[Rfam]
RNA: Small nucleolar RNA SNORA46
Organism: Ictidomys tridecemlineatus
RNA sequence: AGCACUAUAUUUAAACCUGUGGAUGGGAAUUUUCCCCAUUCUUGGUUACGCUGUAGUGCGAAAUAAUUCCUGUCUCUUCUGUUGCACAGCUGACUUGUAUAAUUCUGCUGUUGCUUUAUGGAGUUAAGGAACAUGA
Numbered sequence: 001a002g003c004a005c006u007a008u009a010u011u012u013a014a015a016c017c018u019g020u021g022g023a024u025g026g027g028a029a030u031u032u033u034c035c036c037c038a039u040u041c042u043u044g045g046u047u048a049c050g051c052u053g054u055a056g057u058g059c060g061a062a063a064u065a066a067u068u069c070c071u072g073u074c075u076c077u078u079c080u081g082u083u084g085c086a087c088a089g090c091u092g093a094c095u096u097g098u099a100u101a102a103u104u105c106u107g108c109u110g111u112u113g114c115u116u117u118a119u120g121g122a123g124u125u126a127a128g129g130a131a132c133a134u135g136a
Stems, first nucleotide, its partner, number of pairs: 002059008014047004021041007067131005072125001074123004080118002084114003087110004092105002